[Rfam]
RNA sequence: GAGCUAUGAAGACUCUUGUGUCUAUUGUGAUGGAUGGGUCUAUCACUCUAGCCUAUGGGCUGAAAAUUGGCACAUCUGAGCUC
Numbered sequence: 001g002a003g004c005u006a007u008g009a010a011g012a013c014u015c016u017u018g019u020g021u022c023u024a025u026u027g028u029g030a031u032g033g034a035u036g037g038g039u040c041u042a043u044c045a046c047u048c049u050a051g052c053c054u055a056u057g058g059g060c061u062g063a064a065a066a067u068u069g070g071c072a073c074a075u076c077u078g079a080g081c082u083c
Stems, first nucleotide, its partner, number of pairs: 001083004
RNA: small nucleolar RNA snoR114